The family of this 101-nucleotide sequence from Paenibacillus darwinianus is "Purine riboswitch aptamer".
[Rfam]
RNA sequence: AAAAAUAACAGCAUAUCUUUUCGUAUAAUCUCAAGAAUCGGCUUGAGAGUCUCUACGGGGUCACCGUAAAUGAUCCUUCUACGAAAGGCAGGAAAGCGUCC
Number, nucleotide and partner (000 for none) at each position: 001a000002a000003a000004a000005a000006u000007a000008a000009c000010a000011g000012c000013a000014u000015a000016u000017c000018u087019u086020u085021u084022c083023g082024u081025a080026u000027a000028a000029u048030c047031u046032c045033a044034a043035g042036a000037a000038u000039c000040g000041g000042c035043u034044u033045g032046a031047g030048a029049g000050u000051c000052u000053c000054u000055a000056c000057g077058g076059g075060g074061u073062c072063a071064c000065c000066g000067u000068a000069a000070a000071u063072g062073a061074u060075c059076c058077u057078u000079c000080u025081a024082c023083g022084a021085a020086a019087g018088g000089c000090a000091g000092g000093a000094a000095a000096g000097c000098g000099u000100c000101c000
The family's consensus secondary structure is taken from published work.